RNA sequence: ACAAUGGAGAGUUUGAUCCUGGCUCAGGAUGAACGCUAGCGGCAGGCCUAAUACAUGCAAGUCGAACGGGCUUUGGGACUUCGGUUCCAGAGUCAGUGGCGCACGGGUGCGUAACGCGUAUGCAACCUACCUUCCACAGGGGGAUAGCCCCGGGAAACCGGGAUUAAUACCGCAUGACACAGUUGGGUGGCAUCACCCGACUGUCAAAGUUUCGGCGGUGGAAGAUGGGCAUGCGUGCCAUUAGCUAGUUGGCGGGGUAGAGGCCCACCAAGGCUACGAUGGCUAGGGGUUCUGAGAGGAUGGUCCCCCACACUGGUACUGAGACACGGACCAGACUCCUACGGGAGGCAGCAGUAGGGAAUAUUGGGCAAUGGCCGAGAGGCUGACCCAGCCAUGCCGCGUGCAGGAAGAAGGCCUUCUGGGUUGUAAACUGCUUUUAUCUGGGAAGAAAACGCCCCUGCGGGGGUAACUGACGGUACCAGAUGAAUAAGCACCGGCUAACUCCGUGCCAGCAGCCGCGGUAAUACGGAGGGUGCAAGCGUUGUCCGGAUUUAUUG
Numbered sequence: 001a002c003a004a005u006g007g008a009g010a011g012u013u014u015g016a017u018c019c020u021g022g023c024u025c026a027g028g029a030u031g032a033a034c035g036c037u038a039g040c041g042g043c044a045g046g047c048c049u050a051a052u053a054c055a056u057g058c059a060a061g062u063c064g065a066a067c068g069g070g071c072u073u074u075g076g077g078a079c080u081u082c083g084g085u086u087c088c089a090g091a092g093u094c095a096g097u098g099g100c101g102c103a104c105g106g107g108u109g110c111g112u113a114a115c116g117c118g119u120a121u122g123c124a125a126c127c128u129a130c131c132u133u134c135c136a137c138a139g140g141g142g143g144a145u146a147g148c149c150c151c152g153g154g155a156a157a158c159c160g161g162g163a164u165u166a167a168u169a170c171c172g173c174a175u176g177a178c179a180c181a182g183u184u185g186g187g188u189g190g191c192a193u194c195a196c197c198c199g200a201c202u203g204u205c206a207a208a209g210u211u212u213c214g215g216c217g218g219u220g221g222a223a224g225a226u227g228g229g230c231a232u233g234c235g236u237g238c239c240a241u242u243a244g245c246u247a248g249u250u251g252g253c254g255g256g257g258u259a260g261a262g263g264c265c266c267a268c269c270a271a272g273g274c275u276a277c278g279a280u281g282g283c284u285a286g287g288g289g290u291u292c293u294g295a296g297a298g299g300a301u302g303g304u305c306c307c308c309c310a311c312a313c314u315g316g317u318a319c320u321g322a323g324a325c326a327c328g329g330a331c332c333a334g335a336c337u338c339c340u341a342c343g344g345g346a347g348g349c350a351g352c353a354g355u356a357g358g359g360a361a362u363a364u365u366g367g368g369c370a371a372u373g374g375c376c377g378a379g380a381g382g383c384u385g386a387c388c389c390a391g392c393c394a395u396g397c398c399g400c401g402u403g404c405a406g407g408a409a410g411a412a413g414g415c416c417u418u419c420u421g422g423g424u425u426g427u428a429a430a431c432u433g434c435u436u437u438u439a440u441c442u443g444g445g446a447a448g449a450a451a452a453c454g455c456c457c458c459u460g461c462g463g464g465g466g467u468a469a470c471u472g473a474c475g476g477u478a479c480c481a482g483a484u485g486a487a488u489a490a491g492c493a494c495c496g497g498c499u500a501a502c503u504c505c506g507u508g509c510c511a512g513c514a515g516c517c518g519c520g521g522u523a524a525u526a527c528g529g530a531g532g533g534u535g536c537a538a539g540c541g542u543u544g545u546c547c548g549g550a551u552u553u554a555u556u557g
Base pairs, nucleotide, nucleotide: 009025010024011023012022013021027547028546029545030544032543033542034541035540036539037538039400040399041398042397043396044395045393046392047358052356053355054354056353057352058351061100062099063098066097067096069094070093073090074089075088076087077086078085079084107311108310109309116236117235118234119233120232121231122230123229126228127227131224132223133222134221135220136219137218139173141171142170147164149162150161151160152159153158179204180203181202182201183200184199185198187196188195189194209216210215237283238282239281244274245273246272249271250270251269252268254266255265256264286308287307288306289305291300292299293298313334314333315332316331317330336347337346338345339344364390366389367388368387372385373384374383375382376381403434404433405432406431413425414424415423416422439484440483441482442481443480444479448474454467455466456465491536492535493534494533495532502531503530504529505528506527512519513518

The family of this 557-nucleotide part of an RNA from uncultured bacterium zdt-44a23 is "Bacterial small subunit ribosomal RNA". The family is grouped with related families in Rfam's "SSU clan". A reference for the family is Cannone et al. (2002), "The comparative RNA web (CRW) site: an online database of comparative sequence and structure information for ribosomal, intron, and other RNAs", BMC Bioinformatics.